[Rfam]
RNA sequence: AUGGUGUUGUAAGUAAAAAUAAAAAAGGAAAAAAAAAAAAAGAAAAAAAAAUCUGUUCUUAUCAGUUUAAUAUCUGAUACGUCCCCUACCCGGGGACCAUAUAUUAAAUUGAUUUUUGGAGCAGGGAGAUGGAAUAGGGGCUUGCUCCGUCCACUCCACGCAUCGACCUGGUAUUGCAGUAUUUCUAGGAACGGUGCACCCCCU
Numbered sequence: 001a002u003g004g005u006g007u008u009g010u011a012a013g014u015a016a017a018a019a020u021a022a023a024a025a026a027g028g029a030a031a032a033a034a035a036a037a038a039a040a041a042g043a044a045a046a047a048a049a050a051a052u053c054u055g056u057u058c059u060u061a062u063c064a065g066u067u068u069a070a071u072a073u074c075u076g077a078u079a080c081g082u083c084c085c086c087u088a089c090c091c092g093g094g095g096a097c098c099a100u101a102u103a104u105u106a107a108a109u110u111g112a113u114u115u116u117u118g119g120a121g122c123a124g125g126g127a128g129a130u131g132g133a134a135u136a137g138g139g140g141c142u143u144g145c146u147c148c149g150u151c152c153a154c155u156c157c158a159c160g161c162a163u164c165g166a167c168c169u170g171g172u173a174u175u176g177c178a179g180u181a182u183u184u185c186u187a188g189g190a191a192c193g194g195u196g197c198a199c200c201c202c203c204u
Stems, first nucleotide, its partner, number of pairs: 060079006081097006125157004131151002137148004160197006167189005
RNA: U2 spliceosomal RNA